[Rfam]
RNA sequence: GGAGACUGGCGGCGGACGGGCCGCCGGGUAACCCGGUCAGGUCCGGAAGGAAGCAGCCGUAACCGGUCAGGCCUGGGUCGUCCGUUCAGUCUCCCAC
Numbered sequence: 001g002g003a004g005a006c007u008g009g010c011g012g013c014g015g016a017c018g019g020g021c022c023g024c025c026g027g028g029u030a031a032c033c034c035g036g037u038c039a040g041g042u043c044c045g046g047a048a049g050g051a052a053g054c055a056g057c058c059g060u061a062a063c064c065g066g067u068c069a070g071g072c073c074u075g076g077g078u079c080g081u082c083c084g085u086u087c088a089g090u091c092u093c094c095c096a097c
Base pairs, nucleotide, nucleotide: 004091005090006089007088008087011082012081013080014079017075018074019073020072021071022070023067024066025065026064027063029061034059035058036057037056042051043050044049
The family of this 97-nucleotide RNA from Rhodovibrio salinarum is "Bacterial small signal recognition particle RNA". For this family Rfam cites "Kinship in the SRP RNA family" (Rosenblad et al., RNA Biol, 2009). A search with the family's covariance model found it, with a score of 62 bits. The family's consensus secondary structure is taken from published work. The signal recognition particle (SRP) is a universally conserved ribonucleoprotein involved in the co-translational targeting of proteins to membranes.